[Rfam]
RNA sequence: GGAAGGGACGCCUGACUUACGGGAGUGACUGAACAAACUUACUGGCAACUGCUGGUUAAGGUGAUGAGACAGGGGUGGUGCCCGCUGCUGGGAACAGUAGAAUCGAAAACCAAUCGGGUCUCAGGCAAGAACGUUUUUACUUCUGUAGUAAUGCCCGUUCUUUGUUGGUAUACAGGAAUCCAACCUCCCAACAC
Numbered sequence: 001g002g003a004a005g006g007g008a009c010g011c012c013u014g015a016c017u018u019a020c021g022g023g024a025g026u027g028a029c030u031g032a033a034c035a036a037a038c039u040u041a042c043u044g045g046c047a048a049c050u051g052c053u054g055g056u057u058a059a060g061g062u063g064a065u066g067a068g069a070c071a072g073g074g075g076u077g078g079u080g081c082c083c084g085c086u087g088c089u090g091g092g093a094a095c096a097g098u099a100g101a102a103u104c105g106a107a108a109a110c111c112a113a114u115c116g117g118g119u120c121u122c123a124g125g126c127a128a129g130a131a132c133g134u135u136u137u138u139a140c141u142u143c144u145g146u147a148g149u150a151a152u153g154c155c156c157g158u159u160c161u162u163u164g165u166u167g168g169u170a171u172a173c174a175g176g177a178a179u180c181c182a183a184c185c186u187c188c189c190a191a192c193a194c
Stems, first nucleotide, its partner, number of pairs: 001016001004013003021189005028062002041056006065123006072083003076112004085100006103117004127162007137151004143175004164184005
The family of this 194-nucleotide sequence from Glaucusvirus ssm5 is "manA RNA".
The family's RNA type in Rfam is cis-regulatory element.